[Rfam]
RNA sequence: AGGAGGAUUGAGAAAGUUUGGCAGUAAGAUUGGUGCUGCUACAACUGGUUAUUUCCUCCAAGACUAAUGACUUAACACUGCAAUAGUACCUGUGUUUUAUAUUCAGAGUAUGUGGUGUUUUGUCUACAUUUC
Numbered sequence: 001a002g003g004a005g006g007a008u009u010g011a012g013a014a015a016g017u018u019u020g021g022c023a024g025u026a027a028g029a030u031u032g033g034u035g036c037u038g039c040u041a042c043a044a045c046u047g048g049u050u051a052u053u054u055c056c057u058c059c060a061a062g063a064c065u066a067a068u069g070a071c072u073u074a075a076c077a078c079u080g081c082a083a084u085a086g087u088a089c090c091u092g093u094g095u096u097u098u099a100u101a102u103u104c105a106g107a108g109u110a111u112g113u114g115g116u117g118u119u120u121u122g123u124c125u126a127c128a129u130u131u132c
Base pairs, nucleotide, nucleotide: 002059003058004057005056006055015046016045017044018043019041020040021039022038023037024036025035080123081122085119086118088116089115090114096110
Rfam assigns this 132-nucleotide sequence from Clupea harengus to the family "Small nucleolar RNA SNORA47". Pairs were carried over by alignment from the consensus structure, which was predicted with WAR. The source organism's lineage runs through Eukaryota, Eumetazoa, Craniata, Neopterygii and Clupea. Gene Ontology terms of the family: RNA processing and nucleolus.